Description
Rfam assigns this 129-nucleotide RNA from Hibiscus trionum to the family "Small nucleolar RNA snoR77". For this family Rfam cites "Experimental RNomics: identification of 140 candidates for small non-messenger RNAs in the plant Arabidopsis thaliana" (Marker et al., Curr Biol, 2002). It scores 114 bits against the family's covariance model. Its family is annotated with RNA processing and nucleolus in the Gene Ontology.
[Rfam]
RNA sequence: AGGCAGCCUUGUUGCCUAAUCCGCCAUGGCAAUGAAGGUGUUAAACUGCUCAGAUAACGAUUAUUGCUUUUGCUCUUCAGUCUUGCUGAGAUUCAUUGAUGAAGCUGGACUAGUAAGCCUAAGCACAUU
Number, nucleotide and partner (000 for none) at each position: 001a000002g042003g041004c040005a039006g000007c038008c037009u035010u034011g033012u032013u031014g030015c029016c028017u000018a000019a000020u000021c000022c000023g000024c000025c000026a000027u000028g016029g015030c014031a013032a012033u011034g010035a009036a000037g008038g007039u005040g004041u003042u002043a000044a000045a000046c000047u000048g000049c000050u000051c000052a000053g000054a000055u000056a000057a000058c000059g000060a000061u000062u000063a000064u000065u000066g000067c123068u122069u121070u000071u000072g118073c117074u116075c000076u000077u000078c000079a111080g110081u109082c108083u107084u000085g105086c104087u103088g000089a000090g097091a096092u000093u000094c000095a000096u091097u090098g000099a000100u000101g000102a000103a087104g086105c085106u000107g083108g082109a081110c080111u079112a000113g000114u000115a000116a074117g073118c072119c000120u000121a069122a068123g067124c000125a000126c000127a000128u000129u000